This 135-nucleotide RNA from Phascolarctos cinereus belongs to the Rfam family "Small nucleolar RNA SNORA4".
ACA4 is a member of the H/ACA class of snoRNA that guide the sites of modification of uridines to pseudouridines.
A search with the family's covariance model found it, with a score of 63 bits.
The base pairs follow the family's consensus structure, which was predicted with PFOLD.
Rfam 15.1 lists 290 matches to the family in 136 species.
Rfam classes the family as an H/ACA-box small nucleolar RNA.

RNA sequence: GUCCCAAAAGCUGCUUAUUUGGGAAAGGUCUUUUAAUUACCAUUUCCCAAUUAAAAGCUGUCUGGGAGAGGAAAAGACCACACUCCACAGUGAGCUACAUUGUUGUAGUCCAUUACUUACUUUGUGGCCAACAGU
Numbered sequence: 001g002u003c004c005c006a007a008a009a010g011c012u013g014c015u016u017a018u019u020u021g022g023g024a025a026a027g028g029u030c031u032u033u034u035a036a037u038u039a040c041c042a043u044u045u046c047c048c049a050a051u052u053a054a055a056a057g058c059u060g061u062c063u064g065g066g067a068g069a070g071g072a073a074a075a076g077a078c079c080a081c082a083c084u085c086c087a088c089a090g091u092g093a094g095c096u097a098c099a100u101u102g103u104u105g106u107a108g109u110c111c112a113u114u115a116c117u118u119a120c121u122u123u124g125u126g127g128c129c130a131a132c133a134g135u
Stems, first nucleotide, its partner, number of pairs: 004065003008061001011060001013058004020053002022048002025045001027041003076129001078127005089114004094109006